[Rfam]
RNA sequence: GUCGAGGAUAUUGUCCUGUCACAGCAGUACGUAUUAAUAAGUUACUGGUGUGAUCGGACAUUGUCCUGGAU
Numbered sequence: 001g002u003c004g005a006g007g008a009u010a011u012u013g014u015c016c017u018g019u020c021a022c023a024g025c026a027g028u029a030c031g032u033a034u035u036a037a038u039a040a041g042u043u044a045c046u047g048g049u050g051u052g053a054u055c056g057g058a059c060a061u062u063g064u065c066c067u068g069g070a071u
Base pairs, nucleotide, nucleotide: 003069005067006066012060013059014058015057016056018054022050023049025047026046027045028044029043
mir-1000 microRNA precursor family: a 71-nucleotide RNA from Aphidius gifuensis. Rfam 15.1 lists 152 matches to the family in 150 species. NCBI's taxonomy places the organism under Eukaryota, Opisthokonta, Bilateria, Mandibulata, Aphidius. The match comes from Rfam's covariance-model search (63 bits). Rfam links the family to the GO terms miRNA-mediated post-transcriptional gene silencing, negative regulation of glutamate secretion, neurotransmission and RISC complex.